RNA sequence: AGUUUGGUUUGUAGAAACAAAGAGAAGCGGAUCUAUUCUAUCCCCAAUAAGUACCAAUUUGCAGUGGGG
Number, nucleotide and partner (000 for none) at each position: 001a000002g000003u022004u021005u000006g000007g018008u017009u016010u015011g000012u000013a000014g000015a010016a009017a008018c007019a000020a000021a004022g003023a000024g000025a000026a000027g000028c000029g000030g000031a000032u000033c000034u000035a000036u000037u000038c000039u000040a000041u000042c000043c068044c067045c066046a000047a000048u000049a000050a000051g060052u000053a058054c000055c000056a000057a000058u053059u000060u051061g000062c000063a000064g000065u000066g045067g044068g043069g000
Plastid-clpP 5UTR RNA: a 69-nucleotide RNA from Rhodamnia argentea. About the family: Plastid clpP is a non-coding RNA (ncRNA) recognised in plastids. The literature on the family includes a 2023 paper in Plant Commun by Richter et al., "Retrograde signaling in plants: A critical review focusing on the GUN pathway and beyond". It scores 71 bits against the family's covariance model.